[Rfam]
RNA sequence: GUCCCCGUAGCUCAGUGGAUAGAGCGCGGGACUUCUAAUCCCGGCGUCGCAGGUUCGAAUCCUGCCGGGGACA
Numbered sequence: 001g002u003c004c005c006c007g008u009a010g011c012u013c014a015g016u017g018g019a020u021a022g023a024g025c026g027c028g029g030g031a032c033u034u035c036u037a038a039u040c041c042c043g044g045c046g047u048c049g050c051a052g053g054u055u056c057g058a059a060u061c062c063u064g065c066c067g068g069g070g071a072c073a
Base pairs, nucleotide, nucleotide: 001072002071003070004069005068006067007066010025011024012023013022027043028042029041030040031039049065050064051063052062053061
RNA: tRNA